[Rfam]
RNA sequence: GGUUUCCGUUGGUGCAAAUACAAUUCAAUUUAAGGUGAGCGACAGUUCUCCAUUGGUAUCAAAAAGUUAUCCAUUAAGCGGAGAAA
Numbered sequence: 001g002g003u004u005u006c007c008g009u010u011g012g013u014g015c016a017a018a019u020a021c022a023a024u025u026c027a028a029u030u031u032a033a034g035g036u037g038a039g040c041g042a043c044a045g046u047u048c049u050c051c052a053u054u055g056g057u058a059u060c061a062a063a064a065a066g067u068u069a070u071c072c073a074u075u076a077a078g079c080g081g082a083g084a085a086a
Stems, first nucleotide, its partner, number of pairs: 009023003048083004052074002055071004060066001
RNA: Plastid-rps12 3UTR RNA